A member of the RNA family "TPP riboswitch aptamer (THI element)" from Blastococcus sp. CT_GayMR20, 103 nucleotides long. The base pairs follow the family's consensus structure, which is taken from published work. Vitamin B(1) in its active form thiamin pyrophosphate (TPP) is an essential coenzyme that is synthesised by coupling of pyrimidine and thiazole moieties in bacteria. The previously detected thiamin-regulatory element, thi box was extended, resulting in a new, highly conserved RNA secondary structure, the THI element, which is widely distributed in eubacteria and also occurs in some archaea. Its family is annotated with thiamine pyrophosphate binding in the Gene Ontology.

RNA sequence: AGAAACCGACAGGGGAGCGCUUCGGCGCUGAGAGUGCGGGACACCGCAGACCCUCGAACCUGAUCCGGGUCAUGCCGGCGCAGGGAGUCUGGAGGAGACAUGG
Numbered sequence: 001a002g003a004a005a006c007c008g009a010c011a012g013g014g015g016a017g018c019g020c021u022u023c024g025g026c027g028c029u030g031a032g033a034g035u036g037c038g039g040g041a042c043a044c045c046g047c048a049g050a051c052c053c054u055c056g057a058a059c060c061u062g063a064u065c066c067g068g069g070u071c072a073u074g075c076c077g078g079c080g081c082a083g084g085g086a087g088u089c090u091g092g093a094g095g096a097g098a099c100a101u102g103g
Stems, first nucleotide, its partner, number of pairs: 006091001008089003011054004017028004035048005059084004065078004